[Rfam]
RNA: Small nucleolar RNA SNORA53
RNA sequence: CACACACUGCCUUAGAUCCGCUCCUCGGACGGGGCCUGUCACAGUGGAGUACGCCCUCUAGGGUUGCCUCCCUGUCCAGUCUCCGUUCAGCAACACUUGUCAAUGUUGUGUUCCAUGGGGAGUGCUUGAGUCAUUAGUGUGUGAGAGUAGAAUACCUCCACUGUGAGCUGGUAGUGCGUUGUGUGCAGACCUACCCCCACCCCAACCAGUGGAGGGGGAACUGCCUCCCAAGGCAGUUGGUCAACUGAUUACACAUGAUGUCAGGCUUGUGGUGGGGACAUU
Numbered sequence: 001c002a003c004a005c006a007c008u009g010c011c012u013u014a015g016a017u018c019c020g021c022u023c024c025u026c027g028g029a030c031g032g033g034g035c036c037u038g039u040c041a042c043a044g045u046g047g048a049g050u051a052c053g054c055c056c057u058c059u060a061g062g063g064u065u066g067c068c069u070c071c072c073u074g075u076c077c078a079g080u081c082u083c084c085g086u087u088c089a090g091c092a093a094c095a096c097u098u099g100u101c102a103a104u105g106u107u108g109u110g111u112u113c114c115a116u117g118g119g120g121a122g123u124g125c126u127u128g129a130g131u132c133a134u135u136a137g138u139g140u141g142u143g144a145g146a147g148u149a150g151a152a153u154a155c156c157u158c159c160a161c162u163g164u165g166a167g168c169u170g171g172u173a174g175u176g177c178g179u180u181g182u183g184u185g186c187a188g189a190c191c192u193a194c195c196c197c198c199a200c201c202c203c204a205a206c207c208a209g210u211g212g213a214g215g216g217g218g219a220a221c222u223g224c225c226u227c228c229c230a231a232g233g234c235a236g237u238u239g240g241u242c243a244a245c246u247g248a249u250u251a252c253a254c255a256u257g258a259u260g261u262c263a264g265g266c267u268u269g270u271g272g273u274g275g276g277g278a279c280a281u282u
Stems, first nucleotide, its partner, number of pairs: 002142007011130005019124008028088002032084001037079001041075004046071001049068001051065001053064004090111001091108005156277005163270001165268004177260008